[Rfam]
RNA sequence: AUUUAAUAAGUAAUGGUAACUCAUAUAAUAUCGGGGAUAAGGCCCGAAAGUUUCUACCCAGAAACCGUAAAUUUUUGGACUAUGAGCAAAGUAAUAAGAUAA
Numbered sequence: 001a002u003u004u005a006a007u008a009a010g011u012a013a014u015g016g017u018a019a020c021u022c023a024u025a026u027a028a029u030a031u032c033g034g035g036g037a038u039a040a041g042g043c044c045c046g047a048a049a050g051u052u053u054c055u056a057c058c059c060a061g062a063a064a065c066c067g068u069a070a071a072u073u074u075u076u077g078g079a080c081u082a083u084g085a086g087c088a089a090a091g092u093a094a095u096a097a098g099a100u101a102a
Base pairs, nucleotide, nucleotide: 020086021085022084023083024082025081029049031047032046033045034044035043058078059077060076061075062074063073064072